[Rfam]
RNA sequence: UUCCAUUCUCAGGGCGGGGUGAAAUUCCCCACCGGCGGUUAUAGCCCGCGAGCGCCACCUCUACGGGGUGGGUCAGCAGAUCCGGUGGAAUUCCGGGGCCGACGGUCAUAGUCCGGAUGGGAGAGAAUGUAC
Numbered sequence: 001u002u003c004c005a006u007u008c009u010c011a012g013g014g015c016g017g018g019g020u021g022a023a024a025u026u027c028c029c030c031a032c033c034g035g036c037g038g039u040u041a042u043a044g045c046c047c048g049c050g051a052g053c054g055c056c057a058c059c060u061c062u063a064c065g066g067g068g069u070g071g072g073u074c075a076g077c078a079g080a081u082c083c084g085g086u087g088g089a090a091u092u093c094c095g096g097g098g099c100c101g102a103c104g105g106u107c108a109u110a111g112u113c114c115g116g117a118u119g120g121g122a123g124a125g126a127a128u129g130u131a132c
Stems, first nucleotide, its partner, number of pairs: 004129007017029003031112002033101002035049004044099002052077002081097005103115003
FMN riboswitch aptamer (RFN element): a 132-nucleotide RNA sequence from Ruegeria sp. TM1040. The sequence is in the family's curated seed alignment. Gene Ontology term of the family: FMN binding.